mir-3473 microRNA precursor family: a 74-nucleotide sequence from Jaculus jaculus.
RNA sequence: ACCACUAAGCCAUCUCUCCAGCCCUCAGGUUGUUUUUUUGAAAAUAUUUAGGGCUGGAGAGAUGGCUUAGUGGU
Numbered sequence: 001a002c003c004a005c006u007a008a009g010c011c012a013u014c015u016c017u018c019c020a021g022c023c024c025u026c027a028g029g030u031u032g033u034u035u036u037u038u039u040g041a042a043a044a045u046a047u048u049u050a051g052g053g054c055u056g057g058a059g060a061g062a063u064g065g066c067u068u069a070g071u072g073g074u
Stems, first nucleotide, its partner, number of pairs: 002073023

The base pairs follow the family's consensus structure, which was predicted with RNAalifold. The source organism's lineage runs through Eukaryota, Metazoa, Craniata, Gnathostomata and Jaculus.